[Rfam]
RNA sequence: CGCGUGUCAUCGCCGAAUCCCGCAGCACCAGCACCACCCAGCAGUACGCAGCACCAAGGGAACCGGGGAACCACCACCUUGGGGUGAAUCGGUCCCCUCCGCGAGGAGGGAACCGUAGGAGACCUUCCUGCUCCGAACCCGUCAGCUAACCCGGUAGGCGAGAAGGAAGGAAAGG
Numbered sequence: 001c002g003c004g005u006g007u008c009a010u011c012g013c014c015g016a017a018u019c020c021c022g023c024a025g026c027a028c029c030a031g032c033a034c035c036a037c038c039c040a041g042c043a044g045u046a047c048g049c050a051g052c053a054c055c056a057a058g059g060g061a062a063c064c065g066g067g068g069a070a071c072c073a074c075c076a077c078c079u080u081g082g083g084g085u086g087a088a089u090c091g092g093u094c095c096c097c098u099c100c101g102c103g104a105g106g107a108g109g110g111a112a113c114c115g116u117a118g119g120a121g122a123c124c125u126u127c128c129u130g131c132u133c134c135g136a137a138c139c140c141g142u143c144a145g146c147u148a149a150c151c152c153g154g155u156a157g158g159c160g161a162g163a164a165g166g167a168a169g170g171a172a173a174g175g
Base pairs, nucleotide, nucleotide: 011160012159013158014157018061019060020059062155063154064153065152066151067150072081073080082140083139084138090115091114092113093112118134119133120132121131
Rfam assigns this 175-nucleotide sequence from Streptomyces sp. Ru87 to the family "c-di-AMP riboswitch aptamer (ydaO/yuaA leader)". Rfam links the family to the GO terms regulation of gene expression and cyclic-di-AMP binding.